[Rfam]
RNA sequence: GUCACCGGGGAUCGCCACCCGUCAGCGAGGUUUCGCCCGCGGGUGCCUUUUCC
Numbered sequence: 001g002u003c004a005c006c007g008g009g010g011a012u013c014g015c016c017a018c019c020c021g022u023c024a025g026c027g028a029g030g031u032u033u034c035g036c037c038c039g040c041g042g043g044u045g046c047c048u049u050u051u052c053c
Base pairs, nucleotide, nucleotide: 016045017044018043019042020041021040022039025036026035027034028033

Overview: The record is a 53-nucleotide RNA from Rhodobaculum claviforme, which matches "ffh sRNA" in Rfam. For this family Rfam cites "Identification of candidate structured RNAs in the marine organism 'Candidatus Pelagibacter ubique'" (Meyer et al., BMC Genomics, 2009). The family's RNA type in Rfam is small RNA.